This 139-nucleotide sequence from Pleuronectes platessa belongs to the Rfam family "U4 spliceosomal RNA".

RNA sequence: AUCCCUUCGCAGUGGCAGUAUCGUAGCCUAUGAGGUCAAACGAGGCGUGAUUAUUGCUAGUUGAAAACUUUAACCAAUUCCUGCCUUGACGACCUGAAAUAUAGUCGGCAAUGGCAAUUUUUGUUGGUCUCUAUAGAGG
Numbered sequence: 001a002u003c004c005c006u007u008c009g010c011a012g013u014g015g016c017a018g019u020a021u022c023g024u025a026g027c028c029u030a031u032g033a034g035g036u037c038a039a040a041c042g043a044g045g046c047g048u049g050a051u052u053a054u055u056g057c058u059a060g061u062u063g064a065a066a067a068c069u070u071u072a073a074c075c076a077a078u079u080c081c082u083g084c085c086u087u088g089a090c091g092a093c094c095u096g097a098a099a100u101a102u103a104g105u106c107g108g109c110a111a112u113g114g115c116a117a118u119u120u121u122u123g124u125u126g127g128u129c130u131c132u133a134u135a136g137a138g139g
Stems, first nucleotide, its partner, number of pairs: 020051005026046003034041001036040001083115003086111003090107004128139004
Its family is annotated with U4 snRNP and spliceosomal tri-snRNP complex assembly in the Gene Ontology. The family is grouped with related families in Rfam's "U4 clan". The base pairs follow the family's consensus structure, which is taken from published work. NCBI's taxonomy places the organism under Eukaryota, Gnathostomata, Neopterygii, Eurypterygia, Pleuronectes. Rfam describes the family as follows. U4 small nuclear RNA (U4 snRNA) is a component of the major U2-dependent spliceosome.